About this RNA:
Shown here is a 93-nucleotide RNA, a member of the family "GA-cis RNA". The family's RNA type in Rfam is small RNA.

[Rfam]
RNA sequence: AUGAGGAGGUCCCCAAAUGAUGCGAAGCAUCAUUUUUAUGCAUGGGACCGACGAACUGCCUCCGAAGCUUUAGCUGAGGCGGCGAUACCAUAA
Dot-bracket structure: .......((((((...((((((.....))))))..........))))))........(((.((..((......))..)).)))..........
The family's consensus secondary structure is taken from published work.